[Rfam]
RNA sequence: CCCUCGCCCAACAAAUCGCAGUCGAAGCAGCAUACAGAGAGACAAGCGUGCCCUCGCGGUCGCCUCUGUCUCUCGAGCCUCGCGGCUCACCUGUUCAAUUCACAAUCGCUUUGGGAGAAAGUCCCCGGACACACAAGGACGCACCUUCACAUCUCGGUGUGAAGGGGUGUUUCAUGCGGAAACGCGCCGCCAUAGAAGCAUAGCGGUUCACGUCCCCCCAUCUGUUCUAUUCCUCUCUUCAGCUUCUUGCUCCCGUCUUGUCGUUACAAUCUUCGCUGCCUACCCUCUCUGCCCUUCGGAUCUCACGCUGUUCCCUCUUUUUGCACCUUACCUUGGCACCCGAGGAGACCAACAUGGACGAAGAUACGAGUCCGCGCUCCUUGGUGUCCGGGUUCGGUCCGUAGAAGGGGAACACAUGGCGUGUCUUCCAAUCUUGUGGCGUUGAGGCGGUGCGUCGAUGGCUUGUCGCGGGCGCGCGGAUCUUUCACAGGGUUUGGCUUGUUGAGACGGCUCUGGAGCGCUCAGGAUGGGUCGCGACGACGAAUUCCUUGGAUUUUCGUCGAGAUCUACAGUUAUGCGAUUGCUGCCGGGUCCGUCAAAAAGAUCUGGUGGUUACUCGAUGGGGCUUAUUCUUGGUGCGAGG
Numbered sequence: 001c002c003c004u005c006g007c008c009c010a011a012c013a014a015a016u017c018g019c020a021g022u023c024g025a026a027g028c029a030g031c032a033u034a035c036a037g038a039g040a041g042a043c044a045a046g047c048g049u050g051c052c053c054u055c056g057c058g059g060u061c062g063c064c065u066c067u068g069u070c071u072c073u074c075g076a077g078c079c080u081c082g083c084g085g086c087u088c089a090c091c092u093g094u095u096c097a098a099u100u101c102a103c104a105a106u107c108g109c110u111u112u113g114g115g116a117g118a119a120a121g122u123c124c125c126c127g128g129a130c131a132c133a134c135a136a137g138g139a140c141g142c143a144c145c146u147u148c149a150c151a152u153c154u155c156g157g158u159g160u161g162a163a164g165g166g167g168u169g170u171u172u173c174a175u176g177c178g179g180a181a182a183c184g185c186g187c188c189g190c191c192a193u194a195g196a197a198g199c200a201u202a203g204c205g206g207u208u209c210a211c212g213u214c215c216c217c218c219c220a221u222c223u224g225u226u227c228u229a230u231u232c233c234u235c236u237c238u239u240c241a242g243c244u245u246c247u248u249g250c251u252c253c254c255g256u257c258u259u260g261u262c263g264u265u266a267c268a269a270u271c272u273u274c275g276c277u278g279c280c281u282a283c284c285c286u287c288u289c290u291g292c293c294c295u296u297c298g299g300a301u302c303u304c305a306c307g308c309u310g311u312u313c314c315c316u317c318u319u320u321u322u323g324c325a326c327c328u329u330a331c332c333u334u335g336g337c338a339c340c341c342g343a344g345g346a347g348a349c350c351a352a353c354a355u356g357g358a359c360g361a362a363g364a365u366a367c368g369a370g371u372c373c374g375c376g377c378u379c380c381u382u383g384g385u386g387u388c389c390g391g392g393u394u395c396g397g398u399c400c401g402u403a404g405a406a407g408g409g410g411a412a413c414a415c416a417u418g419g420c421g422u423g424u425c426u427u428c429c430a431a432u433c434u435u436g437u438g439g440c441g442u443u444g445a446g447g448c449g450g451u452g453c454g455u456c457g458a459u460g461g462c463u464u465g466u467c468g469c470g471g472g473c474g475c476g477c478g479g480a481u482c483u484u485u486c487a488c489a490g491g492g493u494u495u496g497g498c499u500u501g502u503u504g505a506g507a508c509g510g511c512u513c514u515g516g517a518g519c520g521c522u523c524a525g526g527a528u529g530g531g532u533c534g535c536g537a538c539g540a541c542g543a544a545u546u547c548c549u550u551g552g553a554u555u556u557u558c559g560u561c562g563a564g565a566u567c568u569a570c571a572g573u574u575a576u577g578c579g580a581u582u583g584c585u586g587c588c589g590g591g592u593c594c595g596u597c598a599a600a601a602a603g604a605u606c607u608g609g610u611g612g613u614u615a616c617u618c619g620a621u622g623g624g625g626c627u628u629a630u631u632c633u634u635g636g637u638g639c640g641a642g643g
Base pairs, nucleotide, nucleotide: 002643003642004641005640006639007638008636009635010634011633014582015581016580017579018578019577022115023113024112025111026110027109028108119628120627121626123625124624125623126622136146137145147162148161149160150159151158152157480554481553482552487549490546491545495543499540500539501538502537526533527532584612585611586610587609588608589607590606591605592604593603
The family of this 643-nucleotide RNA from Microdochium trichocladiopsis is "RNase MRP". Rfam classes the family as a ribozyme. The organism belongs to Microdochium, within Eukaryota. For this family Rfam cites "Phylogenetic analysis of the structure of RNase MRP RNA in yeasts" (Li et al., RNA, 2002).